[Rfam]
RNA sequence: UAGCUAAUAUCCACGAGGAAUUAGACUUUUUUGAAAAAAUGUUACUAAAUAAUACGACUGGUAUCCUAUAAAGGAGCUAGAGCGGGAG
Numbered sequence: 001u002a003g004c005u006a007a008u009a010u011c012c013a014c015g016a017g018g019a020a021u022u023a024g025a026c027u028u029u030u031u032u033g034a035a036a037a038a039a040u041g042u043u044a045c046u047a048a049a050u051a052a053u054a055c056g057a058c059u060g061g062u063a064u065c066c067u068a069u070a071a072a073g074g075a076g077c078u079a080g081a082g083c084g085g086g087a088g
Stems, first nucleotide, its partner, number of pairs: 002027002004024005010019002055084002058080005064075003
The family of this 88-nucleotide RNA from Proteiniborus ethanoligenes is "pan motif". It scores 40 bits against the family's covariance model. Taxonomically the source falls in Proteiniborus (Bacteria, Bacillati, Bacillota, Clostridia). The family's consensus secondary structure is taken from published work.